RNA: FMN riboswitch aptamer (RFN element)
Organism: Acetilactobacillus jinshanensis
RNA sequence: GUUUGUCUUCAGGGCAGGGUGUGAUCCCCGACCGGUGGUGAUAGUCCGCGACCCGUGCAGUGCACGGUUAAUCAGGUGUGAUUCCUGAACCGACAGUUAAAGUCUGGUAAGAAGAAGAUAAUC
Numbered sequence: 001g002u003u004u005g006u007c008u009u010c011a012g013g014g015c016a017g018g019g020u021g022u023g024a025u026c027c028c029c030g031a032c033c034g035g036u037g038g039u040g041a042u043a044g045u046c047c048g049c050g051a052c053c054c055g056u057g058c059a060g061u062g063c064a065c066g067g068u069u070a071a072u073c074a075g076g077u078g079u080g081a082u083u084c085c086u087g088a089a090c091c092g093a094c095a096g097u098u099a100a101a102g103u104c105u106g107g108u109a110a111g112a113a114g115a116a117g118a119u120a121a122u123c
Stems, first nucleotide, its partner, number of pairs: 003121008017029003031103002033092002035049004044090002053067002072088005094106003